[Rfam]
RNA sequence: GGGGGCGUUUUGGCUUCGACGGGGGUAAGAUGGGUUUGAUAAGCGGGUGGAGGCAAGCAUGUCACCUCCUUAAUAAAGUAUGCAUUAAAGAUAAACGCAGAAGACAAUUUUGCAUUAGCAGCUUAAUAUAAGCUACUCAUCAGUCCGGGAUGCCCACGUUUCGGGUAGCUGGUGUCAUAGAGUGGGAAACGAAGUCUAACAAAGCUUUGAGUUAGAGGGGUAUUUAUGAAGCUAGGAAAUAGGAAGUUUGUUUGUGAGCAACCUAGGACCGAAACCUUAAUCACAAACUACACUCGUAGAAAUUCAGAUUGGUCUGCUUUCGGACACGGGUUCGACACCCGUCGCCUCCACCA
Numbered sequence: 001g002g003g004g005g006c007g008u009u010u011u012g013g014c015u016u017c018g019a020c021g022g023g024g025g026u027a028a029g030a031u032g033g034g035u036u037u038g039a040u041a042a043g044c045g046g047g048u049g050g051a052g053g054c055a056a057g058c059a060u061g062u063c064a065c066c067u068c069c070u071u072a073a074u075a076a077a078g079u080a081u082g083c084a085u086u087a088a089a090g091a092u093a094a095a096c097g098c099a100g101a102a103g104a105c106a107a108u109u110u111u112g113c114a115u116u117a118g119c120a121g122c123u124u125a126a127u128a129u130a131a132g133c134u135a136c137u138c139a140u141c142a143g144u145c146c147g148g149g150a151u152g153c154c155c156a157c158g159u160u161u162c163g164g165g166u167a168g169c170u171g172g173u174g175u176c177a178u179a180g181a182g183u184g185g186g187a188a189a190c191g192a193a194g195u196c197u198a199a200c201a202a203a204g205c206u207u208u209g210a211g212u213u214a215g216a217g218g219g220g221u222a223u224u225u226a227u228g229a230a231g232c233u234a235g236g237a238a239a240u241a242g243g244a245a246g247u248u249u250g251u252u253u254g255u256g257a258g259c260a261a262c263c264u265a266g267g268a269c270c271g272a273a274a275c276c277u278u279a280a281u282c283a284c285a286a287a288c289u290a291c292a293c294u295c296g297u298a299g300a301a302a303u304u305c306a307g308a309u310u311g312g313u314c315u316g317c318u319u320u321c322g323g324a325c326a327c328g329g330g331u332u333c334g335a336c337a338c339c340c341g342u343c344g345c346c347u348c349c350a351c352c353a
Stems, first nucleotide, its partner, number of pairs: 001349007020322008029313001031312001033310007044296005049069005057083006117137002120134003138174006144165008153186005195216006203233006235270002240265004246259003250288004254282001326342005
The family of this 353-nucleotide sequence from Clostridium chauvoei is "transfer-messenger RNA". The family's consensus secondary structure is taken from published work. The literature on the family includes a 1997 paper in RNA by Felden et al., "Probing the structure of the Escherichia coli 10Sa RNA (tmRNA)". The family's RNA type in Rfam is non-coding RNA gene. Lineage of the source: Bacteria > Bacillati > Clostridiaceae > Clostridium > Clostridium chauvoei.